The family of this 67-nucleotide RNA sequence from Nannospalax galili is "Selenocysteine insertion sequence 1".
A search with the family's covariance model found it, with a score of 40 bits.
Taxonomically the source falls in Nannospalax (Eukaryota, Craniata, Sarcopterygii, Spalacidae).
About the family: The incorporation of selenocysteine into a protein sequence is directed by an in-frame UGA codon (usually a stop codon) within the coding region of the mRNA. Selenoprotein mRNAs contain a conserved secondary structure in the 3' UTR that is required for the distinction of UGA stop from UGA selenocysteine. The selenocysteine insertion sequence (SECIS) is around 60 nt in length and adopts a hairpin structure which is sufficiently well-defined and conserved to act as a computational screen for selenoprotein genes.

[Rfam]
RNA sequence: UUUGCAUUAAUGAGGACUACACAGAAAACCUUUGUUAAGGAUUUGUGUAAAUCUGAUGUUUGGCAAG
Number, nucleotide and partner (000 for none) at each position: 001u067002u066003u065004g064005c063006a000007u000008u000009a000010a000011u000012g000013a000014g000015g053016a052017c000018u049019a048020c047021a046022c045023a044024g043025a000026a000027a000028a000029c000030c039031u038032u037033u000034g000035u000036u000037a032038a031039g030040g000041a000042u000043u024044u023045g022046u021047g020048u019049a018050a000051a000052u016053c015054u000055g000056a000057u000058g000059u000060u000061u000062g000063g005064c004065a003066a002067g001